[Rfam]
RNA sequence: GAAUGCCCGGAAGGCGAAAUCCUCCUCCCUUCGCCUGACGGACAGGCCAGCACCUCCUCCCGCUGGCUGGACAUGGAAAAAGGCCGGAUCCUCCCCCGGCCUUUUUCUUUU
Numbered sequence: 001g002a003a004u005g006c007c008c009g010g011a012a013g014g015c016g017a018a019a020u021c022c023u024c025c026u027c028c029c030u031u032c033g034c035c036u037g038a039c040g041g042a043c044a045g046g047c048c049a050g051c052a053c054c055u056c057c058u059c060c061c062g063c064u065g066g067c068u069g070g071a072c073a074u075g076g077a078a079a080a081a082g083g084c085c086g087g088a089u090c091c092u093c094c095c096c097c098g099g100c101c102u103u104u105u106u107c108u109u110u111u
Base pairs, nucleotide, nucleotide: 007041008040009039012036013035014034015033016032017031046068048066050064077106078105079104080103081102082101083100084099085098086097087096